[Rfam]
RNA sequence: GCACGUAAAUCCUCAGACCUGAGGACACUUCUGGACCGGGGGGCGGUACCCCGCGGCUCCACCAUAUGCUCACUUCCUGCUAGGGGACGCCCUUGCAGGGCCUUGGCGGAUACCCGGUUGAUCACCGGAGAAAGCGGUUCGAAACCGUUGUGAGCAUUUGAUGGGGCCGAAAUAGGAUCGACAGGGUGGAUAGGGAAAGCGGCGUGCCGGUGAGAAACACCGUUAUCGUUCAAACUUUACAACUGCAAACACCAACGCAGCUCCGAUGGAGAUGGCAAUCGCUGCCUAA
Numbered sequence: 001g002c003a004c005g006u007a008a009a010u011c012c013u014c015a016g017a018c019c020u021g022a023g024g025a026c027a028c029u030u031c032u033g034g035a036c037c038g039g040g041g042g043g044c045g046g047u048a049c050c051c052c053g054c055g056g057c058u059c060c061a062c063c064a065u066a067u068g069c070u071c072a073c074u075u076c077c078u079g080c081u082a083g084g085g086g087a088c089g090c091c092c093u094u095g096c097a098g099g100g101c102c103u104u105g106g107c108g109g110a111u112a113c114c115c116g117g118u119u120g121a122u123c124a125c126c127g128g129a130g131a132a133a134g135c136g137g138u139u140c141g142a143a144a145c146c147g148u149u150g151u152g153a154g155c156a157u158u159u160g161a162u163g164g165g166g167c168c169g170a171a172a173u174a175g176g177a178u179c180g181a182c183a184g185g186g187u188g189g190a191u192a193g194g195g196a197a198a199g200c201g202g203c204g205u206g207c208c209g210g211u212g213a214g215a216a217a218c219a220c221c222g223u224u225a226u227c228g229u230u231c232a233a234a235c236u237u238u239a240c241a242a243c244u245g246c247a248a249a250c251a252c253c254a255a256c257g258c259a260g261c262u263c264c265g266a267u268g269g270a271g272a273u274g275g276c277a278a279u280c281g282c283u284g285c286c287u288a289a
Base pairs, nucleotide, nucleotide: 001207002206003205004204005203018195019194029186031184032183033182037053038052039051040050041049054169055168056167057166058165059164060163208222209221210220211219

Rfam assigns this 289-nucleotide sequence to the family "permuted transfer-messenger RNA".